[Rfam]
RNA sequence: GUAUUCUUGCGCGCAUGAACCGUAUCCAUUCCGCCCUCCGACGUCGCCGCUCGCUGCCCGCAUGGGAAGCCGUCGGCACGUCGCGGAUGCGCGCCAAGCAAGCUUAAGGCGCGAAACCGGUUGAUGAGUGAAAGCCACGGAUCCCCGUGGCUUUUUU
Numbered sequence: 001g002u003a004u005u006c007u008u009g010c011g012c013g014c015a016u017g018a019a020c021c022g023u024a025u026c027c028a029u030u031c032c033g034c035c036c037u038c039c040g041a042c043g044u045c046g047c048c049g050c051u052c053g054c055u056g057c058c059c060g061c062a063u064g065g066g067a068a069g070c071c072g073u074c075g076g077c078a079c080g081u082c083g084c085g086g087a088u089g090c091g092c093g094c095c096a097a098g099c100a101a102g103c104u105u106a107a108g109g110c111g112c113g114a115a116a117c118c119g120g121u122u123g124a125u126g127a128g129u130g131a132a133a134g135c136c137a138c139g140g141a142u143c144c145c146c147g148u149g150g151c152u153u154u155u156u157u
Stems, first nucleotide, its partner, number of pairs: 005127002008124001011094004020089001031086003039080002043077003046073002049070002054065001131154010